[Rfam]
RNA: 6S / SsrS RNA
Organism: Pigmentiphaga litoralis
RNA sequence: UCUUCCCUGCAGUGUUCGUGUUUGGCCAUAUAUUCCUUGGACCCAUGCUAUGGCAUGAGGUUGCGGGAAUCGCCCCUCAGGCGUGAUCGUUUCUCUGUCAAACGAACCCAAUGAGUGGCUGACUGCGACCGACCUUGAACUUAACGGUUCAGGAUGCCGGCCUAGCGGCACAGGCGGGGAUCUA
Numbered sequence: 001u002c003u004u005c006c007c008u009g010c011a012g013u014g015u016u017c018g019u020g021u022u023u024g025g026c027c028a029u030a031u032a033u034u035c036c037u038u039g040g041a042c043c044c045a046u047g048c049u050a051u052g053g054c055a056u057g058a059g060g061u062u063g064c065g066g067g068a069a070u071c072g073c074c075c076c077u078c079a080g081g082c083g084u085g086a087u088c089g090u091u092u093c094u095c096u097g098u099c100a101a102a103c104g105a106a107c108c109c110a111a112u113g114a115g116u117g118g119c120u121g122a123c124u125g126c127g128a129c130c131g132a133c134c135u136u137g138a139a140c141u142u143a144a145c146g147g148u149u150c151a152g153g154a155u156g157c158c159g160g161c162c163u164a165g166c167g168g169c170a171c172a173g174g175c176g177g178g179g180a181u182c183u184a
Base pairs, nucleotide, nucleotide: 004180005179006178007177008176009175010174012171013170014169015168017167018166019165034154035153036152038151039150040149041148042147043146059130060129061128063126064125065124066123072119073118074117076115077114078113083107084106087105088104089103090102091101